Rfam assigns this 71-nucleotide sequence from Allorhizobium borbori to the family "Makes More Granules Regulator RNA (mmgR)". Its family is annotated with DNA-templated transcription, termination, response to nitrogen compound and protein binding in the Gene Ontology.
[Rfam]
RNA sequence: GCAGAAUACCCUCCUUGGGUGUUUCCUCCCUAGACUCAGCCGCGCCCCGAGCGCGGUUUUUUUUGCCCGCA
Dot-bracket structure: .......((((.....))))...................((((((.....))))))...............